[Rfam]
RNA sequence: GAUCGCGUCGAGGGUCUGAUAGCUGGCUUGUCCCCCGCCGCAUCGGACUUGGACAAAGGCCUUAUCCCCUCUCCGGGCCUUUGUCCCCAUUUUAGAGCCGCCAUAGCCACACCUCCAGGCUAUGGCGGCUUUGU
Numbered sequence: 001g002a003u004c005g006c007g008u009c010g011a012g013g014g015u016c017u018g019a020u021a022g023c024u025g026g027c028u029u030g031u032c033c034c035c036c037g038c039c040g041c042a043u044c045g046g047a048c049u050u051g052g053a054c055a056a057a058g059g060c061c062u063u064a065u066c067c068c069c070u071c072u073c074c075g076g077g078c079c080u081u082u083g084u085c086c087c088c089a090u091u092u093u094a095g096a097g098c099c100g101c102c103a104u105a106g107c108c109a110c111a112c113c114u115c116c117a118g119g120c121u122a123u124g125g126c127g128g129c130u131u132u133g134u
Stems, first nucleotide, its partner, number of pairs: 015047006025039003051086011095130001098128011
Dot-bracket structure: ..............((((((....(((.........)))..))))))...(((((((((((..............)))))))))))........(..(((((((((((.........))))))))))).)....
RNA: Alphaproteobacterial sRNA ar7